RNA sequence: GGCAGCGGUCAGCUUUGCAGGGUUAGCAUCCAGCCUUGACUCCCCGCUGUGCAAACCCAUGCAAAACUGACCACGCCU
Numbered sequence: 001g002g003c004a005g006c007g008g009u010c011a012g013c014u015u016u017g018c019a020g021g022g023u024u025a026g027c028a029u030c031c032a033g034c035c036u037u038g039a040c041u042c043c044c045c046g047c048u049g050u051g052c053a054a055a056c057c058c059a060u061g062c063a064a065a066a067c068u069g070a071c072c073a074c075g076c077c078u
Stems, first nucleotide, its partner, number of pairs: 005074001007072006014065006020058002023054002026052004032048003
The record is a 78-nucleotide RNA sequence from Bagarius yarrelli, which matches "mir-19 microRNA precursor family" in Rfam. Pairs were carried over by alignment from the consensus structure, which was predicted with RNAalifold. For this family Rfam cites "Identification of novel genes coding for small expressed RNAs" (Lagos-Quintana et al., Science, 2001). The family is grouped with related families in Rfam's "mir-19 clan". The source organism's lineage runs through Eukaryota, Bilateria, Gnathostomata, Teleostomi and Bagarius. Rfam links the family to the GO terms miRNA-mediated post-transcriptional gene silencing and RISC complex.